[Rfam]
RNA: DUF805b RNA
RNA sequence: AUGGAGUAAGCUGAAAAUCCUUAUAAAGAGUAGGCG
Numbered sequence: 001a002u003g004g005a006g007u008a009a010g011c012u013g014a015a016a017a018u019c020c021u022u023a024u025a026a027a028g029a030g031u032a033g034g035c036g
Stems, first nucleotide, its partner, number of pairs: 003020003010035003